Description:
Pseudomon-Rho RNA: a 101-nucleotide RNA from Pseudomonas sp. HAR-UPW-AIA-41.

[Rfam]
Nucleotides: 101
Stems, first nucleotide, its partner, number of pairs: 009030006038101004044096004072084004
Number, partner (000 for none) and nucleotide at each position: 001000u002000u003000c004000g005000g006000c007000c008000c009030g010029c011028a012027g013026c014025g015000c016000g017000u018000g019000a020000a021000a022000a023000a024000c025014c026013g027012u028011u029010g030009c031000c032000u033000c034000u035000c036000c037000u038101g039100c040099c041098g042000u043000c044096g045095c046094c047093g048000a049000c050000g051000a052000u053000a054000c055000c056000a057000a058000u059000u060000c061000g062000a063000a064000u065000a066000c067000g068000u069000a070000c071000c072084g073083c074082g075081a076000a077000c078000c079000u080000g081075u082074c083073g084072c085000c086000u087000u088000c089000c090000a091000c092000g093047c094046g095045g096044c097000a098041c099040g100039g101038c